[Rfam]
RNA sequence: AUUAAUAUGGAAGGGAGAAGAGCUUUAAUGAUUGGAGUCAUUUUCAGAGCAUUAAAGCUCUUCUCCCUUCCAUAUUAAU
Numbered sequence: 001a002u003u004a005a006u007a008u009g010g011a012a013g014g015g016a017g018a019a020g021a022g023c024u025u026u027a028a029u030g031a032u033u034g035g036a037g038u039c040a041u042u043u044u045c046a047g048a049g050c051a052u053u054a055a056a057g058c059u060c061u062u063c064u065c066c067c068u069u070c071c072a073u074a075u076u077a078a079u
Stems, first nucleotide, its partner, number of pairs: 001079030035045003
Shown here is a 79-nucleotide RNA sequence from Homo sapiens, a member of the family "mir-3202 microRNA precursor family". The family has 2 seed sequences and 32 matches in Rfam 15.1. The family's consensus secondary structure was predicted with RNAalifold. The sequence is in the family's curated seed alignment. Gene Ontology terms of the family: miRNA-mediated post-transcriptional gene silencing and RISC complex.